The record is an 82-nucleotide sequence from Protea cynaroides, which matches "Small nucleolar RNA Z159/U59" in Rfam. The family is grouped with related families in Rfam's "SNORD59 clan". Rfam links the family to the GO terms nucleolus and RNA processing. It scores 60 bits against the family's covariance model. A reference for the family is Chen et al. (2003), "The high diversity of snoRNAs in plants: identification and comparative study of 120 snoRNA genes from Oryza sativa", Nucleic Acids Res.
RNA sequence: GCCUCUGAGGAUGACUAAACAAACUUUCGUUCUACCGAGAUGAUCCAUGUGGAAAAAUAUUGGAGACCUGAACUGAAGAGGC
Numbered sequence: 001g002c003c004u005c006u007g008a009g010g011a012u013g014a015c016u017a018a019a020c021a022a023a024c025u026u027u028c029g030u031u032c033u034a035c036c037g038a039g040a041u042g043a044u045c046c047a048u049g050u051g052g053a054a055a056a057a058u059a060u061u062g063g064a065g066a067c068c069u070g071a072a073c074u075g076a077a078g079a080g081g082c
Stems, first nucleotide, its partner, number of pairs: 003080004